The family of this 82-nucleotide sequence from Oceanodroma tethys is "Small nucleolar RNA SNORD72". The source organism's lineage runs through Eukaryota, Euteleostomi, Saurischia, Neognathae and Oceanodroma. The family's RNA type in Rfam is C/D-box small nucleolar RNA. Pairs were carried over by alignment from the consensus structure. Rfam links the family to the GO terms nucleolus and RNA processing. A reference for the family is Huttenhofer et al. (2001), "RNomics: an experimental approach that identifies 201 candidates for novel, small, non-messenger RNAs in mouse", EMBO J.
RNA sequence: AGCUUGUCAAUGAUGUUUCUUAUUAAAAAAUGUCUGAACGUAUGAACUCCAUAGUGAUUUCGGUACAUUGCUGAGAGAAACU
Number, nucleotide and partner (000 for none) at each position: 001a000002g081003c000004u079005u078006g000007u076008c075009a000010a000011u000012g000013a000014u000015g000016u000017u000018u000019c000020u000021u000022a000023u000024u000025a000026a000027a000028a000029a000030a000031u000032g000033u000034c000035u000036g000037a000038a000039c000040g000041u000042a000043u000044g000045a000046a000047c000048u000049c000050c000051a000052u000053a000054g000055u000056g000057a000058u000059u000060u000061c000062g000063g000064u000065a000066c000067a000068u000069u000070g000071c000072u000073g000074a000075g008076a007077g000078a005079a004080a000081c002082u000
snoRNA HBII-240 belongs to the CD family of snoRNAs. It is the human orthologue of the mouse MBII-240 and is predicted to guide 2'O-ribose methylation of the large 28S rRNA at residue U4590.